[Rfam]
RNA sequence: UCGGCCCCGGUUCACGCUCCCGCAUCCCGCGGGCGGCGACCCGGCGCC
Numbered sequence: 001u002c003g004g005c006c007c008c009g010g011u012u013c014a015c016g017c018u019c020c021c022g023c024a025u026c027c028c029g030c031g032g033g034c035g036g037c038g039a040c041c042c043g044g045c046g047c048c
Base pairs, nucleotide, nucleotide: 003048004047005046007044008043009042010041015038016037017036018035019033020032021031022030
Dot-bracket structure: ..(((.((((....((((((((.......)))).))))..)))).)))

L31-Actinobacteria ribosomal protein leader: a 48-nucleotide sequence from Streptomyces sp. UNC401CLCol. The organism belongs to Streptomyces, within Bacteria. The family's consensus secondary structure is taken from published work. The family's RNA type in Rfam is cis-regulatory leader.